[Rfam]
RNA sequence: GCCAAUAUGUUGCCUUUAUCUGCAUUUGCACCUGCACCUGAUAUACACACCAUCUCUCUCUCUCGCUCUCUCAGAGAGAGAGAGAGAAUCAUGAUUCAUGAUGAGGUGCAGGUUCAUAUGCAGGUGAAUGCCAUUUUGGU
Numbered sequence: 001g002c003c004a005a006u007a008u009g010u011u012g013c014c015u016u017u018a019u020c021u022g023c024a025u026u027u028g029c030a031c032c033u034g035c036a037c038c039u040g041a042u043a044u045a046c047a048c049a050c051c052a053u054c055u056c057u058c059u060c061u062c063u064c065g066c067u068c069u070c071u072c073a074g075a076g077a078g079a080g081a082g083a084g085a086g087a088a089u090c091a092u093g094a095u096u097c098a099u100g101a102u103g104a105g106g107u108g109c110a111g112g113u114u115c116a117u118a119u120g121c122a123g124g125u126g127a128a129u130g131c132c133a134u135u136u137u138g139g140u
Stems, first nucleotide, its partner, number of pairs: 001140005007134003012131002015128011027116002030113010055082001057080001059078001061076001063074001